[Rfam]
RNA sequence: CAGCGAUAAAGGCAAACCAAUCGAAAGGUUGGGACGCAAAGCCAAGGGUCUUCCCCGGAAACGGGAUGACAGCCGGUUACCGAA
Numbered sequence: 001c002a003g004c005g006a007u008a009a010a011g012g013c014a015a016a017c018c019a020a021u022c023g024a025a026a027g028g029u030u031g032g033g034a035c036g037c038a039a040a041g042c043c044a045a046g047g048g049u050c051u052u053c054c055c056c057g058g059a060a061a062c063g064g065g066a067u068g069a070c071a072g073c074c075g076g077u078u079a080c081c082g083a084a
Stems, first nucleotide, its partner, number of pairs: 012037002017032006040078004046074002048070003055064003

c-di-GMP-I riboswitch aptamer: an 84-nucleotide sequence from Alkalibacter rhizosphaerae. Taxonomically the source falls in Alkalibacter (Bacteria, Bacillati, Clostridia, Eubacteriales). Rfam links the family to the GO term cyclic-di-GMP binding. Rfam describes the family as follows. GEMM was predicted in a large-scale screen for bacterial structured RNA regulatory elements. The base pairs follow the family's consensus structure, which is taken from published work.